[Rfam]
RNA sequence: CGGCGGGACACUCCUCCCCAACGAGGAGCGCCCAUCUGUAAGGAUGGAUCAG
Numbered sequence: 001c002g003g004c005g006g007g008a009c010a011c012u013c014c015u016c017c018c019c020a021a022c023g024a025g026g027a028g029c030g031c032c033c034a035u036c037u038g039u040a041a042g043g044a045u046g047g048a049u050c051a052g
Stems, first nucleotide, its partner, number of pairs: 011028006032047006

Source information:
This 52-nucleotide RNA from Methylobacterium planeticum belongs to the Rfam family "serC leader". By type it is a cis-regulatory leader. Taxonomically the source falls in Methylobacterium (Bacteria, Pseudomonadati, Alphaproteobacteria, Hyphomicrobiales). This family is a putative regulatory RNA structure that is found upstream of the serC-serA operon in some alpha-proteobacteria.